[Rfam]
Nucleotides: 087
Stems, first nucleotide, its partner, number of pairs: 003056006021044006
Number, partner (000 for none) and nucleotide at each position: 001000u002000u003056u004055u005054c006053c007052g008051a009000g010000g011000a012000g013000c014000g015000u016000u017000g018000c019000a020000g021044c022043g023042u024041c025040c026039c027000g028000c029000c030000a031000u032000u033000g034000g035000c036000g037000c038000c039026g040025g041024g042023g043022c044021g045000u046000g047000a048000g049000g050000c051008u052007c053006g054005g055004a056003a057000c058000c059000c060000u061000c062000a063000u064000c065000g066000a067000u068000u069000g070000c071000a072000a073000c074000g075000a076000c077000g078000c079000u080000c081000g082000c083000c084000c085000a086000c087000u

A member of the RNA family "SAH (S-adenosyl-L-homocysteine) riboswitch aptamer" from Ottowia testudinis, 87 nucleotides long. The family has 52 seed sequences and 1,354 matches in Rfam 15.1. The source organism's lineage runs through Bacteria, Pseudomonadota, Burkholderiales, Comamonadaceae and Ottowia.